[Rfam]
RNA sequence: CGCCUAUCCGAGGGGCGCGGGCGUAAGCUCGCUGAGAUCGGCUCUGACACGAGCGAGCACCCUUAGAACCUGAUCCGGGUCAUGCCGGCGCAAGGGACGGGAACGAUGUCAGAU
Dot-bracket structure: ......((((((((.((((((......)))))........(((........)))..)..)))).....(((...((((......))))....)))..)))).............
Overview:
The record is a 114-nucleotide sequence from an Alphaproteobacteria bacterium, which matches "TPP riboswitch aptamer (THI element)" in Rfam. It scores 61 bits against the family's covariance model. Taxonomically the source falls in Alphaproteobacteria (Bacteria, Pseudomonadati, Pseudomonadota). The base pairs follow the family's consensus structure, which is taken from published work.